The family of this 134-nucleotide RNA sequence from Fukomys damarensis is "Small nucleolar RNA SNORA1". Gene Ontology terms of the family: RNA processing and nucleolus. The source organism's lineage runs through Eukaryota, Opisthokonta, Sarcopterygii, Rodentia and Fukomys. By type it is an H/ACA-box small nucleolar RNA. ACA1 is a member of the H/ACA class of snoRNA that guide the sites of modification of uridines to pseudouridines. The family has 29 seed sequences and 1,282 matches in Rfam 15.1.

[Rfam]
RNA sequence: AGCCUCAUUGUAGAUUAGAACUGGCACUGUUGAUUGGUGUCCAGAAUUAGUCAGUGUGAUUAAAAUCGAGACCCAGGUCAUGCUUCUGUCACAGUAAACUUAUUACAGUGGUGACGAUGAGACCUGUAACAUUC
Numbered sequence: 001a002g003c004c005u006c007a008u009u010g011u012a013g014a015u016u017a018g019a020a021c022u023g024g025c026a027c028u029g030u031u032g033a034u035u036g037g038u039g040u041c042c043a044g045a046a047u048u049a050g051u052c053a054g055u056g057u058g059a060u061u062a063a064a065a066u067c068g069a070g071a072c073c074c075a076g077g078u079c080a081u082g083c084u085u086c087u088g089u090c091a092c093a094g095u096a097a098a099c100u101u102a103u104u105a106c107a108g109u110g111g112u113g114a115c116g117a118u119g120a121g122a123c124c125u126g127u128a129a130c131a132u133u134c
Stems, first nucleotide, its partner, number of pairs: 002060001004058001006056003023041005074126004087113006
Dot-bracket structure: .(.(.(((..............(((((.........)))))............))).).).............((((.........((((((...............)))))).........))))........